[Rfam]
RNA sequence: CCGCACCAGGGAUUGCAGUGGAAAUCCUUUUCACGUAGUGAAAAGAUUGGAACGGAAAGCCCGGUCGCUU
Numbered sequence: 001c002c003g004c005a006c007c008a009g010g011g012a013u014u015g016c017a018g019u020g021g022a023a024a025u026c027c028u029u030u031u032c033a034c035g036u037a038g039u040g041a042a043a044a045g046a047u048u049g050g051a052a053c054g055g056a057a058a059g060c061c062c063g064g065u066c067g068c069u070u
Stems, first nucleotide, its partner, number of pairs: 009062003013058002018053002023048004029043006

Shown here is a 70-nucleotide RNA sequence from Leptospira biflexa, a member of the family "Flavo-1 RNA". Pairs were carried over by alignment from the consensus structure, which is taken from published work. The match comes from Rfam's covariance-model search (52 bits).